[Rfam]
RNA sequence: AGAUAACUGAUUUCCUCUGGUGCUUAGAGCCCUCUGCAGCCAUCUAGCACCAUUUGAAAUCGGUUAUGA
Numbered sequence: 001a002g003a004u005a006a007c008u009g010a011u012u013u014c015c016u017c018u019g020g021u022g023c024u025u026a027g028a029g030c031c032c033u034c035u036g037c038a039g040c041c042a043u044c045u046a047g048c049a050c051c052a053u054u055u056g057a058a059a060u061c062g063g064u065u066a067u068g069a
Base pairs, nucleotide, nucleotide: 003067004066005064007063008062009061010060011059012058013057014056018052019051020050021049022048025046026045027044028043
RNA: mir-29 microRNA precursor family